[Rfam]
RNA sequence: UUGAAUGUUUUCUAGGGUUCCGCAGCAAAUAUGUUGGACUGGUCCGAGAGAAGACUCACGGCUUACGCUGUGGCACGGAAGGAUAAAAGCCUGGGAGAU
Numbered sequence: 001u002u003g004a005a006u007g008u009u010u011u012c013u014a015g016g017g018u019u020c021c022g023c024a025g026c027a028a029a030u031a032u033g034u035u036g037g038a039c040u041g042g043u044c045c046g047a048g049a050g051a052a053g054a055c056u057c058a059c060g061g062c063u064u065a066c067g068c069u070g071u072g073g074c075a076c077g078g079a080a081g082g083a084u085a086a087a088a089g090c091c092u093g094g095g096a097g098a099u
Stems, first nucleotide, its partner, number of pairs: 007055006015045002020042002022039001023036005057072006074094001076097001080092003
About this RNA
This 99-nucleotide RNA sequence from Lysinibacillus odysseyi belongs to the Rfam family "Guanidine-I riboswitch aptamer". About the family: This family represents a conserved RNA structure found upstream of the ykkC and yxkD genes in Bacillus subtilis and related genes in other bacteria. The literature on the family includes a 2004 paper in Proc Natl Acad Sci U S A by Barrick et al., "New RNA motifs suggest an expanded scope for riboswitches in bacterial genetic control".